A member of the RNA family "Bacterial large subunit ribosomal RNA" from Chromobacterium violaceum, 351 nucleotides of a longer RNA.
The match comes from Rfam's covariance-model search (2846 bits).
Taxonomically the source falls in Chromobacterium violaceum (Bacteria, Pseudomonadati, Pseudomonadota, Chromobacterium).

RNA sequence: UGAGAGAACUCAGGAGAAGGAACUCGGCAAAUUGAUACCGUAACUUCGGGAGAAGGUAUGCCUCUUAGAGUGUAGGACUUCGCGUUCGAAGCUUUGAGAGGUCGCAGAGAAUCGGUGGCUGCGACUGUUUAACAAAAACACAGCACUGUGCCAACACGAAAGUGGACGUAUACGGUGUGACGCCUGCCCGGUGCCGGAAGGUUAAGUGAUGGGGUGCAAGCUCUUGAUCGAAGCCCCGGUAAACGGCGGCCGUAACUAUAACGGUCCUAAGGUAGCGAAAUUCCUUGUCGGGUAAGUUCCGACCCGCACGAAUGGCGUAACGAUGGCCACACUGUCUCCUCCUGAGACUCA
Numbered sequence: 001u002g003a004g005a006g007a008a009c010u011c012a013g014g015a016g017a018a019g020g021a022a023c024u025c026g027g028c029a030a031a032u033u034g035a036u037a038c039c040g041u042a043a044c045u046u047c048g049g050g051a052g053a054a055g056g057u058a059u060g061c062c063u064c065u066u067a068g069a070g071u072g073u074a075g076g077a078c079u080u081c082g083c084g085u086u087c088g089a090a091g092c093u094u095u096g097a098g099a100g101g102u103c104g105c106a107g108a109g110a111a112u113c114g115g116u117g118g119c120u121g122c123g124a125c126u127g128u129u130u131a132a133c134a135a136a137a138a139c140a141c142a143g144c145a146c147u148g149u150g151c152c153a154a155c156a157c158g159a160a161a162g163u164g165g166a167c168g169u170a171u172a173c174g175g176u177g178u179g180a181c182g183c184c185u186g187c188c189c190g191g192u193g194c195c196g197g198a199a200g201g202u203u204a205a206g207u208g209a210u211g212g213g214g215u216g217c218a219a220g221c222u223c224u225u226g227a228u229c230g231a232a233g234c235c236c237c238g239g240u241a242a243a244c245g246g247c248g249g250c251c252g253u254a255a256c257u258a259u260a261a262c263g264g265u266c267c268u269a270a271g272g273u274a275g276c277g278a279a280a281u282u283c284c285u286u287g288u289c290g291g292g293u294a295a296g297u298u299c300c301g302a303c304c305c306g307c308a309c310g311a312a313u314g315g316c317g318u319a320a321c322g323a324u325g326g327c328c329a330c331a332c333u334g335u336c337u338c339c340u341c342c343u344g345a346g347a348c349u350c351a
Base pairs, nucleotide, nucleotide: 001351002350003349004348009346010345011344012343013342014341015340016339018337019336020335035059036058037057038056039055044049060102061101062100063099064098065097078091079090080089081088082087103107115330116329117328118327119326120325121324122322123321126140127139128138143178144177145176146175147174148173149172150171151168155164156163157162181317182316183315184314186247187246188245191244192243193240194239195238196237197236200235201234202233206229211224212223213222214221215220248266249265250264251263252262253261267271277304287303288302289301290300291299292298